RNA: Enterococcus sRNA 55
Organism: Enterococcus phage EFC-1
RNA sequence: UAUAAUUUUGCUUAGUGGCUUACUUCGUCUGCAAACGAGGUAGGCUCUUUUUU
Numbered sequence: 001u002a003u004a005a006u007u008u009u010g011c012u013u014a015g016u017g018g019c020u021u022a023c024u025u026c027g028u029c030u031g032c033a034a035a036c037g038a039g040g041u042a043g044g045c046u047c048u049u050u051u052u053u
Stems, first nucleotide, its partner, number of pairs: 014048002017046012